[Rfam]
RNA sequence: CCGGCUCCGGUUCACCCCGAAGAUCACGAUGGGGACCCGGCGGCC
Numbered sequence: 001c002c003g004g005c006u007c008c009g010g011u012u013c014a015c016c017c018c019g020a021a022g023a024u025c026a027c028g029a030u031g032g033g034g035a036c037c038c039g040g041c042g043g044c045c
Stems, first nucleotide, its partner, number of pairs: 003045003007040004015034005022027001
Description:
This 45-nucleotide RNA from Kibdelosporangium sp. MJ126-NF4 belongs to the Rfam family "L31-Actinobacteria ribosomal protein leader". Lineage of the source: Bacteria > Actinomycetota > Actinomycetes > Pseudonocardiaceae > Kibdelosporangium. A reference for the family is Eckert and Weinberg (2020), "Discovery of 20 novel ribosomal leader candidates in bacteria and archaea", BMC Microbiol. The sequence is in the family's curated seed alignment.